[Rfam]
RNA sequence: AGAAGGCCUCCCGAAAAGCAUAAGCAAGUCUUUAAGAAAUCGCAGGUUGUAAAAAAGCGGAAUGACAUUUCAGACAACGUCAUCCCGC
Numbered sequence: 001a002g003a004a005g006g007c008c009u010c011c012c013g014a015a016a017a018g019c020a021u022a023a024g025c026a027a028g029u030c031u032u033u034a035a036g037a038a039a040u041c042g043c044a045g046g047u048u049g050u051a052a053a054a055a056a057g058c059g060g061a062a063u064g065a066c067a068u069u070u071c072a073g074a075c076a077a078c079g080u081c082a083u084c085c086c087g088c
Base pairs, nucleotide, nucleotide: 005048007046008045009044057088058087059086060085063082064081065080066079068077
Annotation
Rfam assigns this 88-nucleotide RNA from Atopomonas hussainii to the family "Pseudomonas sRNA P31". A reference for the family is Livny et al. (2006), "Identification of 17 Pseudomonas aeruginosa sRNAs and prediction of sRNA-encoding genes in 10 diverse pathogens using the bioinformatic tool sRNAPredict2", Nucleic Acids Res. Pairs were carried over by alignment from the consensus structure, which was predicted with CMfinder. The organism belongs to Atopomonas, within Bacteria.